[Rfam]
RNA sequence: GAAGUGAGCCAGACGAUCGCUGCUGUGGAGAUCUCCGUGAUUGAAGCAGGGGAGGAAAGUCCGGGCUUCAUAGGGCAAGGUGCCAGGUAACGCCUGGGCGGUGUGAACCGACGGAAAGUGCAGCAGAGAGUAGACCGCCUUCAAUAUCGUUUCUUUUCGGAGAAAUGGAAGGUAAGGGUGAAAGGGUGCGGUAAGAGCGCACCGCAUGGCUGGUAACAGUUCAUGGCAUGGUAAACCCCACCAGAAGCAAGACCAAAUAGGGAUCCUAUAGGCAUGGCCCAUGCUGGAUCCGGGUAGGUCGCUUGAGCGUAUGAGUGAUCAUGCGCCUAGAGGAAUGAUCGUUCUAGACAGAACCCGGCUUAUCGGCUCACUUCGAUG
Numbered sequence: 001g002a003a004g005u006g007a008g009c010c011a012g013a014c015g016a017u018c019g020c021u022g023c024u025g026u027g028g029a030g031a032u033c034u035c036c037g038u039g040a041u042u043g044a045a046g047c048a049g050g051g052g053a054g055g056a057a058a059g060u061c062c063g064g065g066c067u068u069c070a071u072a073g074g075g076c077a078a079g080g081u082g083c084c085a086g087g088u089a090a091c092g093c094c095u096g097g098g099c100g101g102u103g104u105g106a107a108c109c110g111a112c113g114g115a116a117a118g119u120g121c122a123g124c125a126g127a128g129a130g131u132a133g134a135c136c137g138c139c140u141u142c143a144a145u146a147u148c149g150u151u152u153c154u155u156u157u158c159g160g161a162g163a164a165a166u167g168g169a170a171g172g173u174a175a176g177g178g179u180g181a182a183a184g185g186g187u188g189c190g191g192u193a194a195g196a197g198c199g200c201a202c203c204g205c206a207u208g209g210c211u212g213g214u215a216a217c218a219g220u221u222c223a224u225g226g227c228a229u230g231g232u233a234a235a236c237c238c239c240a241c242c243a244g245a246a247g248c249a250a251g252a253c254c255a256a257a258u259a260g261g262g263a264u265c266c267u268a269u270a271g272g273c274a275u276g277g278c279c280c281a282u283g284c285u286g287g288a289u290c291c292g293g294g295u296a297g298g299u300c301g302c303u304u305g306a307g308c309g310u311a312u313g314a315g316u317g318a319u320c321a322u323g324c325g326c327c328u329a330g331a332g333g334a335a336u337g338a339u340c341g342u343u344c345u346a347g348a349c350a351g352a353a354c355c356c357g358g359c360u361u362a363u364c365g366g367c368u369c370a371c372u373u374c375g376a377u378g
Stems, first nucleotide, its partner, number of pairs: 001374010011363001012343007020052002023049004057361003061358005066247004073280004079242004083097005098112001099110004113238002118236002120232002135177002137173006144166002185203006204227001205225005210219003251300004261291006271285005307326008

Bacterial RNase P class A: a 378-nucleotide sequence.
Rfam classes the family as a ribozyme.